[Rfam]
RNA sequence: AAAAACAGCCAUCAAUGGAGUUGUUCCCCAACCUGGAGCCACCUUCCCAUACUCAGAGUUG
Numbered sequence: 001a002a003a004a005a006c007a008g009c010c011a012u013c014a015a016u017g018g019a020g021u022u023g024u025u026c027c028c029c030a031a032c033c034u035g036g037a038g039c040c041a042c043c044u045u046c047c048c049a050u051a052c053u054c055a056g057a058g059u060u061g
Stems, first nucleotide, its partner, number of pairs: 017045002020042002023039005
Shown here is a 61-nucleotide sequence from Neosynechococcus sphagnicola, a member of the family "Plastid-psbN 5UTR RNA".
Rfam classes the family as a cis-regulatory element.
A search with the family's covariance model found it, with a score of 52 bits.
Plastid psbN is a non-coding RNA (ncRNA) recognised in plastids. It was reported as a conserved 11 stem-loop in the prime untranslated region (5UTR) of psbN genes.
The base pairs follow the family's consensus structure, which was predicted with LocARNA.